[Rfam]
The record is a 53-nucleotide sequence, which matches "Mu-gpT-DE RNA" in Rfam.
Nucleotides: 053
Stems, first nucleotide, its partner, number of pairs: 002042004007025005
Number, partner (000 for none) and nucleotide at each position: 001000c002042c003041c004040u005039g006000a007025c008024a009023g010022c011021a012000g013000c014000a015000u016000g017000g018000g019000g020000c021011u022010g023009c024008u025007g026000a027000c028000u029000c030000a031000a032000c033000c034000c035000a036000a037000g038000a039005c040004a041003g042002g043000a044000g045000a046000u047000c048000g049000a050000c051000a052000u053000g